[Rfam]
RNA sequence: GCAGACUCACUCUGCACCCGGCUGCAGCCCCAGGCGGGUGCUUUUUCUGUCUGCCACAGUAACACUCCAGGCGCUGCAGUCAUCUUGACAUGGCAAUACAGUUGCCGGGGGACAAGGUG
Numbered sequence: 001g002c003a004g005a006c007u008c009a010c011u012c013u014g015c016a017c018c019c020g021g022c023u024g025c026a027g028c029c030c031c032a033g034g035c036g037g038g039u040g041c042u043u044u045u046u047c048u049g050u051c052u053g054c055c056a057c058a059g060u061a062a063c064a065c066u067c068c069a070g071g072c073g074c075u076g077c078a079g080u081c082a083u084c085u086u087g088a089c090a091u092g093g094c095a096a097u098a099c100a101g102u103u104g105c106c107g108g109g110g111g112a113c114a115a116g117g118u119g
Stems, first nucleotide, its partner, number of pairs: 001054006014041007022033003066110003070106003073102004078097001079094003
Dot-bracket structure: ((((((.......(((((((.(((......))).))))))).......))))))...........(((.(((((((.((((..........)))..).)))).))).))).........
Rfam assigns this 119-nucleotide RNA sequence from Erinaceus europaeus to the family "Small nucleolar RNA SNORA77". The source organism's lineage runs through Eukaryota, Opisthokonta, Craniata, Vertebrata and Erinaceus. For this family Rfam cites "A computational screen for mammalian pseudouridylation guide H/ACA RNAs" (Schattner et al., RNA, 2006). The family's RNA type in Rfam is H/ACA-box small nucleolar RNA. Rfam describes the family as follows. ACA63 (SNORA77) is a member of the H/ACA class of snoRNAs that guide the sites of modification of uridines to pseudouridines. This snoRNA was identified by computational screening and its expression in mouse experimentally verified by Northern blot and primer extension analysis. Its family is annotated with RNA processing and nucleolus in the Gene Ontology. Rfam's curators put it in the seed alignment. Pairs were carried over by alignment from the consensus structure, which was predicted with RNAalifold.